[Rfam]
RNA sequence: AGCCGUCAUUGGAAUGGCAAUGACGAAGAACCAAAUGGGGUUAGCAAG
Numbered sequence: 001a002g003c004c005g006u007c008a009u010u011g012g013a014a015u016g017g018c019a020a021u022g023a024c025g026a027a028g029a030a031c032c033a034a035a036u037g038g039g040g041u042u043a044g045c046a047a048g
Base pairs, nucleotide, nucleotide: 004025005024006023007022008021009020010019011018029042030041031040032039
RNA: gut-2 RNA